[Rfam]
RNA sequence: AAAAGAGGUAGAGGCGCAAAAUUUAAGAGUAUUAUUAUUGAGGUAAGCACGAUGACGUAGUAAGAAAGGAAAUUUUGCCGAAGCUUAUAACUGAUGUUUUAAGGUUAUAGAGCUGGGCUUAUGCAGAAUAUGUAUAAGACUGUCACAAAUUGGUUUGUGGUGAGCUAUCAUUCAU
Numbered sequence: 001a002a003a004a005g006a007g008g009u010a011g012a013g014g015c016g017c018a019a020a021a022u023u024u025a026a027g028a029g030u031a032u033u034a035u036u037a038u039u040g041a042g043g044u045a046a047g048c049a050c051g052a053u054g055a056c057g058u059a060g061u062a063a064g065a066a067a068g069g070a071a072a073u074u075u076u077g078c079c080g081a082a083g084c085u086u087a088u089a090a091c092u093g094a095u096g097u098u099u100u101a102a103g104g105u106u107a108u109a110g111a112g113c114u115g116g117g118c119u120u121a122u123g124c125a126g127a128a129u130a131u132g133u134a135u136a137a138g139a140c141u142g143u144c145a146c147a148a149a150u151u152g153g154u155u156u157g158u159g160g161u162g163a164g165c166u167a168u169c170a171u172u173c174a175u
Stems, first nucleotide, its partner, number of pairs: 007169005016078009032063007082114004086109007115141002118138008143160007

The family of this 175-nucleotide RNA from Clostridium taeniosporum is "Lysine riboswitch aptamer". Rfam describes the family as follows. Riboswitches are metabolite binding domains within certain messenger RNAs that serve as precision sensors for their corresponding targets. The family's consensus secondary structure is taken from published work. A search with the family's covariance model found it, with a score of 122 bits.